Background:
The record is an 80-nucleotide RNA from Pontibacillus halophilus, which matches "Glycine riboswitch aptamer" in Rfam.

[Rfam]
RNA sequence: CUCUGGAGAGCGCCAAUGAGGCCACCCAAGAAGCAAGUAGACAGUCGAGGUCUACCAAACUUUCUGGUGAACGGACAGAG
Numbered sequence: 001c002u003c004u005g006g007a008g009a010g011c012g013c014c015a016a017u018g019a020g021g022c023c024a025c026c027c028a029a030g031a032a033g034c035a036a037g038u039a040g041a042c043a044g045u046c047g048a049g050g051u052c053u054a055c056c057a058a059a060c061u062u063u064c065u066g067g068u069g070a071a072c073g074g075a076c077a078g079a080g
Base pairs, nucleotide, nucleotide: 001080002079003078004077005076012022013021014020024068025067026066028063031062032061033060037055038054039053040052041051042050
Taxonomically the source falls in Pontibacillus halophilus (Bacteria, Bacillota, Bacillaceae, Pontibacillus). A search with the family's covariance model found it, with a score of 38 bits. Its Rfam clan is "Glycine riboswitch clan".